The family of this 262-nucleotide part of an RNA from Faecalibacterium prausnitzii is "Bacterial large subunit ribosomal RNA". Lineage of the source: Bacteria > Clostridia > Eubacteriales > Faecalibacterium > Faecalibacterium prausnitzii. It is one of the family's seed sequences.
RNA sequence: GGAUAUUUGAUGGGAGCUGUUCCUAGUACGAGAGGACCGGAGCGGACGUACCUCUGGCGCACCAGUUGUUCUGCCAAGGGCAUAGCUGGGCAACUAUGUACGGAUCGGAUAAACGCUGAAAGCAUCUAAGCGUGAAGCCGACCCAAAGAUAAGAUAUCCCAUUGUUUCAAACAAGUAAGACCCCUUGAAGACUACAAGGUUGAUAGGCACGAUGUGUAAGUGGAGUUUGCGGAGGGGUUAUCGCCGCCGUAACCCUCCAGCA
Numbered sequence: 001g002g003a004u005a006u007u008u009g010a011u012g013g014g015a016g017c018u019g020u021u022c023c024u025a026g027u028a029c030g031a032g033a034g035g036a037c038c039g040g041a042g043c044g045g046a047c048g049u050a051c052c053u054c055u056g057g058c059g060c061a062c063c064a065g066u067u068g069u070u071c072u073g074c075c076a077a078g079g080g081c082a083u084a085g086c087u088g089g090g091c092a093a094c095u096a097u098g099u100a101c102g103g104a105u106c107g108g109a110u111a112a113a114c115g116c117u118g119a120a121a122g123c124a125u126c127u128a129a130g131c132g133u134g135a136a137g138c139c140g141a142c143c144c145a146a147a148g149a150u151a152a153g154a155u156a157u158c159c160c161a162u163u164g165u166u167u168c169a170a171a172c173a174a175g176u177a178a179g180a181c182c183c184c185u186u187g188a189a190g191a192c193u194a195c196a197a198g199g200u201u202g203a204u205a206g207g208c209a210c211g212a213u214g215u216g217u218a219a220g221u222g223g224a225g226u227u228u229g230c231g232g233a234g235g236g237g238u239u240a241u242c243g244c245c246g247c248c249g250u251a252a253c254c255c256u257c258c259a260g261c262a
Base pairs, nucleotide, nucleotide: 001159002158003157004156005155006154007153008152011145012144013143014142017045018044019043020042021041022040023039047102048101049100050099051098055096056095057094062089063088064087065086066085067082068081069080070079071078072077106140107139108138113133114132115131116130117129162174163173164172176259179257180256183199184198185197186196187195204251205250207247208246210243211242214238217234221232223230